Overview
The record is a 149-nucleotide RNA sequence from Mesorhizobium australicum, which matches "speF leader" in Rfam.
[Rfam]
RNA sequence: UGCCGGUUGUCCAAAGACCGGGGUUACUGAAGAGGCACACCUUCAUUGCCGGCAGUGCGGAACGGGGUUCUCCCAAUCCAAGCCAAGGCAGACAAAGCGAACCGAAGCCGGGCAAGGCUAAGGUUCAUCGCCGCGAGACGGCGUUUCAU
Numbered sequence: 001u002g003c004c005g006g007u008u009g010u011c012c013a014a015a016g017a018c019c020g021g022g023g024u025u026a027c028u029g030a031a032g033a034g035g036c037a038c039a040c041c042u043u044c045a046u047u048g049c050c051g052g053c054a055g056u057g058c059g060g061a062a063c064g065g066g067g068u069u070c071u072c073c074c075a076a077u078c079c080a081a082g083c084c085a086a087g088g089c090a091g092a093c094a095a096a097g098c099g100a101a102c103c104g105a106a107g108c109c110g111g112g113c114a115a116g117g118c119u120a121a122g123g124u125u126c127a128u129c130g131c132c133g134c135g136a137g138a139c140g141g142c143g144u145u146u147c148a149u
Stems, first nucleotide, its partner, number of pairs: 001023001003021006034050004057131003083091001102112002
Rfam describes the family as follows. This family is a putative regulatory RNA structure that is found upstream of the speF gene encoding ornithine decarboxylase in Agrobacterium tumefaciens and other alpha-proteobacteria. It scores 92 bits against the family's covariance model.